[Rfam]
Shown here is a 52-nucleotide RNA from Rhodobiaceae bacterium UBA7378, a member of the family "serC leader". Rfam's curators write: This family is a putative regulatory RNA structure that is found upstream of the serC-serA operon in some alpha-proteobacteria. The final stem of the structure overlaps the ribosome binding site of the serC reading frame. Lineage of the source: Bacteria > Pseudomonadati > Pseudomonadota > Hyphomicrobiales > Rhodobiaceae.
RNA sequence: UCUUGGGACACACCUCCCCAACGAGGUGCAACUAUCUGAGAGGGUAGCUAUA
Numbered sequence: 001u002c003u004u005g006g007g008a009c010a011c012a013c014c015u016c017c018c019c020a021a022c023g024a025g026g027u028g029c030a031a032c033u034a035u036c037u038g039a040g041a042g043g044g045u046a047g048c049u050a051u052a
Stems, first nucleotide, its partner, number of pairs: 011028006032047006

The match comes from Rfam's covariance-model search (64 bits).
For this family Rfam cites "Evidence for a second class of S-adenosylmethionine riboswitches and other regulatory RNA motifs in alpha-proteobacteria" (Corbino et al., Genome Biol, 2005).